RNA sequence: AUCCUCUCAGGCCUUUUGGCUAAGAUCAAGUGUAGUAUCUGUUCUUUAUAGUUUAACAACUAUAACUUGGUACAUAGUACCAUUUGUUGUUAAUCUAAUUUUUCUGCGCCCGGAAUCUAGAGCUCUGGCUUGCCAUCUCUAGAAUCCACAGGUGUCCUUUGCUUUACACUGUUGCAAUGUGACGCCGAGGGGGC
Numbered sequence: 001a002u003c004c005u006c007u008c009a010g011g012c013c014u015u016u017u018g019g020c021u022a023a024g025a026u027c028a029a030g031u032g033u034a035g036u037a038u039c040u041g042u043u044c045u046u047u048a049u050a051g052u053u054u055a056a057c058a059a060c061u062a063u064a065a066c067u068u069g070g071u072a073c074a075u076a077g078u079a080c081c082a083u084u085u086g087u088u089g090u091u092a093a094u095c096u097a098a099u100u101u102u103u104c105u106g107c108g109c110c111c112g113g114a115a116u117c118u119a120g121a122g123c124u125c126u127g128g129c130u131u132g133c134c135a136u137c138u139c140u141a142g143a144a145u146c147c148a149c150a151g152g153u154g155u156c157c158u159u160u161g162c163u164u165u166a167c168a169c170u171g172u173u174g175c176a177a178u179g180u181g182a183c184g185c186c187g188a189g190g191g192g193g194c
Stems, first nucleotide, its partner, number of pairs: 005025003010021004046065006068082006112147003116143004126135003151186005157179001159177004
Dot-bracket structure: ....(((..((((....)))).)))....................((((((........))))))..((((((...)))))).............................(((.((((......(((....)))....)))).)))...(((((.(.((((...........)))).)..)))))........
RNA: U2 spliceosomal RNA